[Rfam]
RNA sequence: CUGCAAAUAUCCUGCUCUGAUCAGUAAUGAUCAGGACAGGCUAAACAACUACUACAGUAAGACCACACCUGUGCCCAAACCUAGUGCUUUCCCCAGGUCUGGUUUUCAAAUGCUGGUGACAACC
Numbered sequence: 001c002u003g004c005a006a007a008u009a010u011c012c013u014g015c016u017c018u019g020a021u022c023a024g025u026a027a028u029g030a031u032c033a034g035g036a037c038a039g040g041c042u043a044a045a046c047a048a049c050u051a052c053u054a055c056a057g058u059a060a061g062a063c064c065a066c067a068c069c070u071g072u073g074c075c076c077a078a079a080c081c082u083a084g085u086g087c088u089u090u091c092c093c094c095a096g097g098u099c100u101g102g103u104u105u106u107c108a109a110a111u112g113c114u115g116g117u118g119a120c121a122a123c124c
Base pairs, nucleotide, nucleotide: 003052005050012039013038014037016035017034018033019032020031021030022029062117063116064115065114068112075102076101077100079098080097081096082095084093
RNA: Small nucleolar RNA SNORA72
Organism: Mesocricetus auratus